[Rfam]
RNA sequence: UUCCAUCGCUAAGUCAAGGCUUCUUCCCGCGACGCAUGUCGUGCUUUGUUUACAAUGGAGGUCUGUCUGUUACAGCUUUGGUAGAUUAACACUGGCCCGCACCGAAUUUCUUUCUGAAGCUAGGUUGACUUGUUUUCGUCUUGAAAGCAUGUCGCAAGGGCCAGAUGUGUUUUGUUUUUGAGUUGAACUCUGCUUCUGCCUUUUUGGUGGCUUAGUAGCAGAGUUCUUAGUAACAUCCCACACAUUC
Numbered sequence: 001u002u003c004c005a006u007c008g009c010u011a012a013g014u015c016a017a018g019g020c021u022u023c024u025u026c027c028c029g030c031g032a033c034g035c036a037u038g039u040c041g042u043g044c045u046u047u048g049u050u051u052a053c054a055a056u057g058g059a060g061g062u063c064u065g066u067c068u069g070u071u072a073c074a075g076c077u078u079u080g081g082u083a084g085a086u087u088a089a090c091a092c093u094g095g096c097c098c099g100c101a102c103c104g105a106a107u108u109u110c111u112u113u114c115u116g117a118a119g120c121u122a123g124g125u126u127g128a129c130u131u132g133u134u135u136u137c138g139u140c141u142u143g144a145a146a147g148c149a150u151g152u153c154g155c156a157a158g159g160g161c162c163a164g165a166u167g168u169g170u171u172u173u174g175u176u177u178u179u180g181a182g183u184u185g186a187a188c189u190c191u192g193c194u195u196c197u198g199c200c201u202u203u204u205u206g207g208u209g210g211c212u213u214a215g216u217a218g219c220a221g222a223g224u225u226c227u228u229a230g231u232a233a234c235a236u237c238c239c240a241c242a243c244a245u246u247c
Base pairs, nucleotide, nucleotide: 003081004080005079017068018067019066020065022061023060024059025058026057028043029042030041031040032039092164093163094162095161096160097159101125102124103123105121107119108118109117110116127153128152132148133147134146135145136144137143138142167241168240169239173235174234175233185226186225187224188223191220192219193218194217196210197209198208199207200206
Shown here is a 247-nucleotide RNA from Penicillium arizonense, a member of the family "Small nucleolar RNA snR191". The match comes from Rfam's covariance-model search (63 bits). Pairs were carried over by alignment from the consensus structure, which was predicted with WAR. Gene Ontology terms of the family: nucleolus and RNA processing. The family's RNA type in Rfam is H/ACA-box small nucleolar RNA. Clan: SNORA74 clan.